[Rfam]
RNA sequence: CGCGUAUAAGGGCAAACCUGACCGAAAGGCAGGGACGCAAAGCUACCAGUCUGUAGGGGAAUCCGAUGACAGUGGGGCUGCGAGG
Number, nucleotide and partner (000 for none) at each position: 001c000002g000003c000004g000005u000006a000007u000008a000009a000010g000011g000012g038013c037014a000015a000016a000017c033018c032019u031020g030021a000022c029023c028024g000025a000026a000027a000028g023029g022030c020031a019032g018033g017034g000035a000036c000037g013038c012039a000040a000041a079042g078043c077044u076045a000046c075047c074048a073049g070050u069051c068052u000053g000054u000055a000056g064057g063058g062059g000060a000061a000062u058063c057064c056065g000066a000067u000068g051069a050070c049071a000072g000073u048074g047075g046076g044077g043078c042079u041080g000081c000082g000083a000084g000085g000
A member of the RNA family "c-di-GMP-I riboswitch aptamer" from Novimethylophilus kurashikiensis, 85 nucleotides long.
Lineage of the source: Bacteria > Pseudomonadati > Pseudomonadota > Betaproteobacteria > Novimethylophilus.